Source information
A member of the RNA family "ZMP/ZTP riboswitch aptamer (pfl RNA motif)" from Streptomyces avermitilis, 90 nucleotides long. Lineage of the source: Bacteria > Bacillati > Actinomycetota > Kitasatosporales > Streptomyces avermitilis.
[Rfam]
RNA sequence: CCGACGGGCCGUGACUGGCGCGCUGGGAUGGGACCGACCAUCGGGGAGCGGCCUGAAUGCGAAUGUGUGCCGUGCGCCUGGGCCGAACGU
Numbered sequence: 001c002c003g004a005c006g007g008g009c010c011g012u013g014a015c016u017g018g019c020g021c022g023c024u025g026g027g028a029u030g031g032g033a034c035c036g037a038c039c040a041u042c043g044g045g046g047a048g049c050g051g052c053c054u055g056a057a058u059g060c061g062a063a064u065g066u067g068u069g070c071c072g073u074g075c076g077c078c079u080g081g082g083c084c085g086a087a088c089g090u
Stems, first nucleotide, its partner, number of pairs: 005055008015045002017078005028041004069083003